[Rfam]
RNA sequence: CAAUGAAGGAAGCAUGGUAAUGAGCACAUACAUUGAAUUGGGUCUUUAGGCAUGUCCUCUCUGAUACUAUUUGGCUUUGAUUUAGGGGCAUGGUUUCGCAGCAAAACA
Numbered sequence: 001c002a003a004u005g006a007a008g009g010a011a012g013c014a015u016g017g018u019a020a021u022g023a024g025c026a027c028a029u030a031c032a033u034u035g036a037a038u039u040g041g042g043u044c045u046u047u048a049g050g051c052a053u054g055u056c057c058u059c060u061c062u063g064a065u066a067c068u069a070u071u072u073g074g075c076u077u078u079g080a081u082u083u084a085g086g087g088g089c090a091u092g093g094u095u096u097c098g099c100a101g102c103a104a105a106a107c108a
Base pairs, nucleotide, nucleotide: 012025013024015022040091042089043088044087050081054075055074056073